[Rfam]
Rfam assigns this 83-nucleotide RNA sequence from Mycolicibacterium smegmatis to the family "Mycobacterium sRNA Ms_IGR-2". The base pairs follow the family's consensus structure.
RNA sequence: CUGAGGGGUACCCGAGGCGUACGAUCGUUCGUACGACGGGUUCGGGAGUGGCUUGAUCCAAAGAGUCGGUUCAGGGGUGAAAA
Number, nucleotide and partner (000 for none) at each position: 001c000002u000003g000004a000005g000006g000007g000008g000009u000010a000011c000012c000013c000014g000015a000016g000017g000018c035019g034020u033021a032022c031023g030024a029025u000026c000027g000028u000029u024030c023031g022032u021033a020034c019035g018036a000037c000038g000039g000040g000041u000042u000043c000044g000045g000046g000047a000048g000049u000050g000051g000052c076053u000054u074055g000056a000057u000058c000059c069060a000061a000062a000063g000064a000065g000066u000067c000068g000069g059070u000071u000072c000073a000074g054075g000076g052077g000078u000079g000080a000081a000082a000083a000
Description
Lineage of the source: Bacteria > Bacillati > Actinomycetes > Mycobacteriaceae > Mycolicibacterium smegmatis. It is one of the family's seed sequences. The family's RNA type in Rfam is small RNA.